The record is a 166-nucleotide sequence from Sporotomaculum syntrophicum, which matches "M-box riboswitch aptamer (ykoK leader)" in Rfam.
RNA sequence: AACGUUCUUCGUUAGGUGAGGCUACUAUACAGACACAGGCCACUGCCCAGAAAUGUCGAGAGACAGGAAUGGGUUAACAGGUAUUACCGAAUUAAGGUUUUACUUAAUGUGGCUGAGAUUACUCUCUAGCUGUAUAGAGCUAAAACUUGCACGAGUGGAGAAGGCG
Numbered sequence: 001a002a003c004g005u006u007c008u009u010c011g012u013u014a015g016g017u018g019a020g021g022c023u024a025c026u027a028u029a030c031a032g033a034c035a036c037a038g039g040c041c042a043c044u045g046c047c048c049a050g051a052a053a054u055g056u057c058g059a060g061a062g063a064c065a066g067g068a069a070u071g072g073g074u075u076a077a078c079a080g081g082u083a084u085u086a087c088c089g090a091a092u093u094a095a096g097g098u099u100u101u102a103c104u105u106a107a108u109g110u111g112g113c114u115g116a117g118a119u120u121a122c123u124c125u126c127u128a129g130c131u132g133u134a135u136a137g138a139g140c141u142a143a144a145a146c147u148u149g150c151a152c153g154a155g156u157g158g159a160g161a162a163g164g165c166g
Stems, first nucleotide, its partner, number of pairs: 005162006011152002013095001015147003020141003025137008039113005045074005054065004080104004086098003115126003

Rfam's curators write: M-box riboswitch, also know as ykoK leader is described as a metaloregulatory RNA that sense divalent metals and function as a genetic control element of genes related to divalent metal transport in bacteria. It was first reported upstream of the B.subtilis ykoK gene and genes with related functions in other bacteria. Its family is annotated with regulation of gene expression and response to magnesium ion in the Gene Ontology.